[Rfam]
RNA sequence: UUUCUUUUCAACUCCAUAAAAAAAGUUUAUAAUUUAUGCUGUCAAAAGAAAUUAUAUCUUAUGACUAUAGCAAUAAAUAUUCAAUAUAAUAAACCAAUUGGACUCGGGGGCAGUACCCGGCGCCUCCACCAUAACCUUUUAAAAUUGUUUAAUAUUAAAUCAAUAUAAUGGGGGCGAAACAGGAUCGACAAGGGCGUAAAGAUUGAAAGUUUGCUCGGUAUUGUACCACCGUUAUCGGGCUAAAAUCUAGUUGCAAACGACAACUAUGCUGAAGCACGUCUCGCUGCUUAAUUGCGGUGUGACACUUCAACUCAAGUCCUGAUGGGUUGCACCAUUAGGCGGGGCCCGAAGGCGCCUGGCAACAGAAGCCUUCACU
Numbered sequence: 001u002u003u004c005u006u007u008u009c010a011a012c013u014c015c016a017u018a019a020a021a022a023a024a025g026u027u028u029a030u031a032a033u034u035u036a037u038g039c040u041g042u043c044a045a046a047a048g049a050a051a052u053u054a055u056a057u058c059u060u061a062u063g064a065c066u067a068u069a070g071c072a073a074u075a076a077a078u079a080u081u082c083a084a085u086a087u088a089a090u091a092a093a094c095c096a097a098u099u100g101g102a103c104u105c106g107g108g109g110g111c112a113g114u115a116c117c118c119g120g121c122g123c124c125u126c127c128a129c130c131a132u133a134a135c136c137u138u139u140u141a142a143a144a145u146u147g148u149u150u151a152a153u154a155u156u157a158a159a160u161c162a163a164u165a166u167a168a169u170g171g172g173g174g175c176g177a178a179a180c181a182g183g184a185u186c187g188a189c190a191a192g193g194g195c196g197u198a199a200a201g202a203u204u205g206a207a208a209g210u211u212u213g214c215u216c217g218g219u220a221u222u223g224u225a226c227c228a229c230c231g232u233u234a235u236c237g238g239g240c241u242a243a244a245a246u247c248u249a250g251u252u253g254c255a256a257a258c259g260a261c262a263a264c265u266a267u268g269c270u271g272a273a274g275c276a277c278g279u280c281u282c283g284c285u286g287c288u289u290a291a292u293u294g295c296g297g298u299g300u301g302a303c304a305c306u307u308c309a310a311c312u313c314a315a316g317u318c319c320u321g322a323u324g325g326g327u328u329g330c331a332c333c334a335u336u337a338g339g340c341g342g343g344g345c346c347c348g349a350a351g352g353c354g355c356c357u358g359g360c361a362a363c364a365g366a367a368g369c370c371u372u373c374a375c376u
Stems, first nucleotide, its partner, number of pairs: 041065004069215005080207006094194002098191003104120005121176007216231004221242001223240001226238002342357004348373006
The family of this 376-nucleotide RNA from Liberibacter crescens is "Alphaproteobacteria transfer-messenger RNA". A search with the family's covariance model found it, with a score of 277 bits. Rfam's curators write: Bacterial tmRNA, also known as 10Sa RNA or SsrA, is named for its dual tRNA and mRNA-like properties. Its role is to liberate the mRNA from a stalled ribosome. To accomplish this part of the tmRNA is used as a reading frame that ends in a translation stop signal. The broken mRNA is replaced in the ribosome by the tmRNA and translation of the tmRNA leads to addition of a proteolysis tag to the incomplete protein enabling recognition by a protease. Recently a number of permuted tmRNA genes have been found encoded in two parts. tmRNAs have been identified in eubacteria and some chloroplasts but are absent from archaeal and eukaryote nuclear genomes. It is annotated as a non-coding RNA gene. Lineage of the source: Bacteria > Hyphomicrobiales > Rhizobiaceae > Liberibacter > Liberibacter crescens.